[Rfam]
RNA sequence: GGGGGUGACAUGGCUUCGACGCUGAUUACGAACCCUUGGGUGCAUGCCGAGAACGUGAUGAUUCUCGUAAAUCCCUCAUCACACAGUUAUAGUUGCAAACGACGAUAACUACGCUCUAGCCGCUUAAGUCGGCUAGCGCUGCACUCUAAGGUGUCUGUAACUCAGAGGUUCGCAGUGUCAUAUGAGACAGAAUCGCCCGGAUGCUUUGCUCUAAGCUGAACGGUUAAAACUAAAAGAGCUCGCCCAAAACACCCUGGCUCUCGGGUCGUGACGGGUUAAUUGAAUAGAGAAGCCUAAGCAUGUAGAUCUUAAGGCAGAGGAUUGGCGGACGCGGGUUCGAAACCCGCCACCUCCACCA
Numbered sequence: 001g002g003g004g005g006u007g008a009c010a011u012g013g014c015u016u017c018g019a020c021g022c023u024g025a026u027u028a029c030g031a032a033c034c035c036u037u038g039g040g041u042g043c044a045u046g047c048c049g050a051g052a053a054c055g056u057g058a059u060g061a062u063u064c065u066c067g068u069a070a071a072u073c074c075c076u077c078a079u080c081a082c083a084c085a086g087u088u089a090u091a092g093u094u095g096c097a098a099a100c101g102a103c104g105a106u107a108a109c110u111a112c113g114c115u116c117u118a119g120c121c122g123c124u125u126a127a128g129u130c131g132g133c134u135a136g137c138g139c140u141g142c143a144c145u146c147u148a149a150g151g152u153g154u155c156u157g158u159a160a161c162u163c164a165g166a167g168g169u170u171c172g173c174a175g176u177g178u179c180a181u182a183u184g185a186g187a188c189a190g191a192a193u194c195g196c197c198c199g200g201a202u203g204c205u206u207u208g209c210u211c212u213a214a215g216c217u218g219a220a221c222g223g224u225u226a227a228a229a230c231u232a233a234a235a236g237a238g239c240u241c242g243c244c245c246a247a248a249a250c251a252c253c254c255u256g257g258c259u260c261u262c263g264g265g266u267c268g269u270g271a272c273g274g275g276u277u278a279a280u281u282g283a284a285u286a287g288a289g290a291a292g293c294c295u296a297a298g299c300a301u302g303u304a305g306a307u308c309u310u311a312a313g314g315c316a317g318a319g320g321a322u323u324g325g326c327g328g329a330c331g332c333g334g335g336u337u338c339g340a341a342a343c344c345c346g347c348c349a350c351c352u353c354c355a356c357c358a
Stems, first nucleotide, its partner, number of pairs: 001354007020327008034314007043302005048067005055082006116136007137177006144167004149162002152159001154191005196223002208239005242276004249269002252265003256294004260289003331347005
Rfam assigns this 358-nucleotide sequence from Nitrincola sp. A-D6 to the family "transfer-messenger RNA". By type it is a non-coding RNA gene. The family's consensus secondary structure is taken from published work. Bacterial tmRNA, also known as 10Sa RNA or SsrA, is named for its dual tRNA and mRNA-like properties. Its role is to liberate the mRNA from a stalled ribosome. To accomplish this part of the tmRNA is used as a reading frame that ends in a translation stop signal.